[Rfam]
RNA: nrdJ RNA
Organism: Streptomyces populi
RNA sequence: ACUUGCAGCGCACGGCCGUACCAGCGGCGCGCGCGGCAUCAGACACAGACCGUGCCGCGGGAAGUUCGCGGCACUUGAGCGCGUU
Numbered sequence: 001a002c003u004u005g006c007a008g009c010g011c012a013c014g015g016c017c018g019u020a021c022c023a024g025c026g027g028c029g030c031g032c033g034c035g036g037c038a039u040c041a042g043a044c045a046c047a048g049a050c051c052g053u054g055c056c057g058c059g060g061g062a063a064g065u066u067c068g069c070g071g072c073a074c075u076u077g078a079g080c081g082c083g084u085u
Stems, first nucleotide, its partner, number of pairs: 004038003008034004013029002016027004052074008